[Rfam]
RNA sequence: CUCGUUCAUCCCGCAAGGGACGGAAGUAGGCUAAGGCUGAAGGAACGUACC
Number, nucleotide and partner (000 for none) at each position: 001c000002u000003c047004g046005u045006u044007c043008a000009u020010c019011c018012c017013g000014c000015a000016a000017g012018g011019g010020a009021c000022g000023g048024a000025a000026g000027u000028a000029g038030g037031c036032u000033a000034a000035g000036g031037c030038u029039g000040a000041a000042g000043g007044a006045a005046c004047g003048u023049a000050c000051c000
Shown here is a 51-nucleotide RNA sequence, a member of the family "Glutamine riboswitch aptamer (glnA leader)". On this family, see Ames and Breaker, RNA Biol 2011: "Bacterial aptamers that selectively bind glutamine". The base pairs follow the family's consensus structure, which is taken from published work.